[Rfam]
The record is a 170-nucleotide RNA sequence from Oscillospiraceae bacterium Marseille-Q3528, which matches "Clostridiales-1 RNA" in Rfam. By type it is a small RNA. A search with the family's covariance model found it, with a score of 99 bits. Lineage of the source: Bacteria > Bacillati > Clostridia > Eubacteriales > Oscillospiraceae.
RNA sequence: UGAACACUAGGGCGUCGAGGUCAGAGGCCGUUCGUGCUUGCACGGUAAGGCAGAUGACUUUGGCACCCGCCAAACAUGAGAAAGCAGCGAUUUAUGAAGUAAAUCUGCGGAUUUCGAAUGGUUGUAGAAUUGCGAGAGCUGUUUGGCAGCGAAGCAAUUCGUAGGUGUCA
Numbered sequence: 001u002g003a004a005c006a007c008u009a010g011g012g013c014g015u016c017g018a019g020g021u022c023a024g025a026g027g028c029c030g031u032u033c034g035u036g037c038u039u040g041c042a043c044g045g046u047a048a049g050g051c052a053g054a055u056g057a058c059u060u061u062g063g064c065a066c067c068c069g070c071c072a073a074a075c076a077u078g079a080g081a082a083a084g085c086a087g088c089g090a091u092u093u094a095u096g097a098a099g100u101a102a103a104u105c106u107g108c109g110g111a112u113u114u115c116g117a118a119u120g121g122u123u124g125u126a127g128a129a130u131u132g133c134g135a136g137a138g139c140u141g142u143u144u145g146g147c148a149g150c151g152a153a154g155c156a157a158u159u160c161g162u163a164g165g166u167g168u169c170a
Base pairs, nucleotide, nucleotide: 001170002169003168005167006166007165008164011067012066014064017061018060019059020058021057022056023055027051028050029049031047032045033044034043035042036041071124072123073122075120076119077118080115081114082113083112087108088107089105090104091103092102093101094100095099127160128159129158130157131156132155133154138150139149140148141147